[Rfam]
RNA sequence: GAUACUGAUGACAAAGCCUGCCGGGCGGUAAUAACGGAUAGAUCGUAAAGACGCUGUGAAUACAUCCCUGUACGCUCGAACCGCGACAUCCUUGUCGCGGACGCUUU
Numbered sequence: 001g002a003u004a005c006u007g008a009u010g011a012c013a014a015a016g017c018c019u020g021c022c023g024g025g026c027g028g029u030a031a032u033a034a035c036g037g038a039u040a041g042a043u044c045g046u047a048a049a050g051a052c053g054c055u056g057u058g059a060a061u062a063c064a065u066c067c068c069u070g071u072a073c074g075c076u077c078g079a080a081c082c083g084c085g086a087c088a089u090c091c092u093u094g095u096c097g098c099g100g101a102c103g104c105u106u107u
Stems, first nucleotide, its partner, number of pairs: 013107005019027003030076001041066003045063003051057002081100008
Overview: Yersinia sRNA 224: a 107-nucleotide RNA sequence from Pectobacterium atrosepticum. The match comes from Rfam's covariance-model search (89 bits). The organism belongs to Pectobacterium atrosepticum, within Bacteria. The family's RNA type in Rfam is small RNA. On this family, see Righetti et al., Proc Natl Acad Sci U S A 2016: "Temperature-responsive in vitro RNA structurome of Yersinia pseudotuberculosis".